[Rfam]
Overview:
The family of this 77-nucleotide RNA from Paramesorhizobium leguminum is "S-element".
RNA sequence: UGUCAAGAGUCCUUGUGACUUGAGCGCCGUUUCGGCGAGCGGAUUUCUUUUGCCUUAACCAUAGGUGAAGAAAAAUG
Numbered sequence: 001u002g003u004c005a006a007g008a009g010u011c012c013u014u015g016u017g018a019c020u021u022g023a024g025c026g027c028c029g030u031u032u033c034g035g036c037g038a039g040c041g042g043a044u045u046u047c048u049u050u051u052g053c054c055u056u057a058a059c060c061a062u063a064g065g066u067g068a069a070g071a072a073a074a075a076u077g
Stems, first nucleotide, its partner, number of pairs: 010072001012070003025067004030063001032061001037055001039053005

Description: It scores 51 bits against the family's covariance model. The literature on the family includes a 2004 paper in Mol Microbiol by Venkova-Canova et al., "Two discrete elements are required for the replication of a repABC plasmid: an antisense RNA and a stem-loop structure". Rfam classes the family as a cis-regulatory element. This family represents a group of S-elements from p42d and related plasmids. The S-element has multiple functions and is believed to act as a negative regulator of repC transcription, be required for efficient replication and act as a translational enhancer of repC. The organism belongs to Paramesorhizobium, within Bacteria.